[Rfam]
RNA sequence: CCUGCCCCCAGAGGCGUUGCAGGUGUGGCUUGUGUCACACGUGUGUCAUUCGGUGGCAGAAAGAAGAGAGGCUUAUCUACGCCCAGUGUUCCAGCUCGUGGACGUCUGGAUGAUGGAUAGUCUGACACC
Number, nucleotide and partner (000 for none) at each position: 001c000002c059003u058004g057005c056006c055007c053008c052009c000010a050011g049012a000013g047014g046015c045016g000017u000018u000019g044020c043021a042022g000023g000024u039025g038026u037027g036028g035029c034030u000031u000032g000033u000034g029035u028036c027037a026038c025039a024040c000041g000042u021043g020044u019045g015046u014047c013048a000049u011050u010051c000052g008053g007054u000055g006056g005057c004058a003059g002060a000061a000062a000063g000064a000065a000066g126067a000068g000069a123070g122071g121072c120073u119074u117075a000076u000077c000078u000079a000080c112081g111082c000083c109084c108085a107086g106087u104088g103089u102090u101091c100092c000093a000094g000095c000096u000097c000098g000099u000100g091101g090102a089103c088104g087105u000106c086107u085108g084109g083110a000111u081112g080113a000114u000115g000116g000117a074118u000119a073120g072121u071122c070123u069124g000125a000126c066127a000128c000129c000
RNA: Small nucleolar RNA SNORA17
Organism: Neomonachus schauinslandi